Vault RNA: an 88-nucleotide RNA sequence from Leptonychotes weddellii. The family's RNA type in Rfam is non-coding RNA gene. A search with the family's covariance model found it, with a score of 73 bits.

RNA sequence: GGGUCGGCUUUAGCUCAAGCGGUUACUUCGUGCACGCACUAAUCCCUUCAAGGGGGUUCGAGACCCGCGGGUGCAUUCUGACCCUUUU
Numbered sequence: 001g002g003g004u005c006g007g008c009u010u011u012a013g014c015u016c017a018a019g020c021g022g023u024u025a026c027u028u029c030g031u032g033c034a035c036g037c038a039c040u041a042a043u044c045c046c047u048u049c050a051a052g053g054g055g056g057u058u059c060g061a062g063a064c065c066c067g068c069g070g071g072u073g074c075a076u077u078c079u080g081a082c083c084c085u086u087u088u
Stems, first nucleotide, its partner, number of pairs: 002083006013072004019068004027062004